[Rfam]
RNA sequence: CAAAAGGCUCUUUUCAGAGCCACUUACCAUCUCAGAAAAGGCUGUGU
Number, nucleotide and partner (000 for none) at each position: 001c000002a000003a000004a000005a000006g021007g020008c019009u018010c017011u016012u000013u000014u000015c000016a011017g010018a009019g008020c007021c006022a000023c000024u000025u000026a000027c000028c000029a000030u000031c000032u000033c000034a000035g000036a000037a000038a000039a000040g000041g000042c000043u000044g000045u000046g000047u000

Notes: The record is a 47-nucleotide RNA from Piliocolobus tephrosceles, which matches "Histone 3' UTR stem-loop" in Rfam. Rfam 15.1 lists 44,596 matches to the family in 976 species. By type it is a cis-regulatory element. A search with the family's covariance model found it, with a score of 36 bits. The source organism's lineage runs through Eukaryota, Eumetazoa, Chordata, Amniota and Piliocolobus.